[Rfam]
RNA sequence: CCAAGUCCCGUCGCACUCCCCCCCCGGCGCCGGGACCUUCCCCGAGCCGGGCUUCGGCGCCUCCCCCCUGGCGUCGGAGCCCGGCUCCACU
Numbered sequence: 001c002c003a004a005g006u007c008c009c010g011u012c013g014c015a016c017u018c019c020c021c022c023c024c025c026g027g028c029g030c031c032g033g034g035a036c037c038u039u040c041c042c043c044g045a046g047c048c049g050g051g052c053u054u055c056g057g058c059g060c061c062u063c064c065c066c067c068c069u070g071g072c073g074u075c076g077g078a079g080c081c082c083g084g085c086u087c088c089a090c091u
Base pairs, nucleotide, nucleotide: 005036006035007034008033009032010031012029013028014027044087045086046085047084048083049082050081051080052079053078055076056075057074058073059072060071061070

Description: A member of the RNA family "Streptomyces RNA 3202", 91 nucleotides long. Rfam classes the family as a small RNA. For this family Rfam cites "Deep sequencing-based identification of small non-coding RNAs in Streptomyces coelicolor" (Vockenhuber et al., RNA Biol, 2011). A search with the family's covariance model found it, with a score of 71 bits.